[Rfam]
The family of this 92-nucleotide RNA sequence from Carlito syrichta is "Small nucleolar RNA SNORD116". A search with the family's covariance model found it, with a score of 55 bits. Pairs were carried over by alignment from the consensus structure, which was predicted with PFOLD. Rfam classes the family as a C/D-box small nucleolar RNA.

RNA sequence: GGAUCGAUGAUGACUUAAAAAUGGAUUUCAUUGGAAUCUGAACAAAAUGAGUGACCAAGUCAUUUCUGUGCCACUUCUGUGAGCUGAGGUCC
Dot-bracket structure: (((((....................((((.(((.........)))...))).)..................................)))))
Numbered sequence: 001g002g003a004u005c006g007a008u009g010a011u012g013a014c015u016u017a018a019a020a021a022u023g024g025a026u027u028u029c030a031u032u033g034g035a036a037u038c039u040g041a042a043c044a045a046a047a048u049g050a051g052u053g054a055c056c057a058a059g060u061c062a063u064u065u066c067u068g069u070g071c072c073a074c075u076u077c078u079g080u081g082a083g084c085u086g087a088g089g090u091c092c
Stems, first nucleotide, its partner, number of pairs: 001092005026053001027051003031045003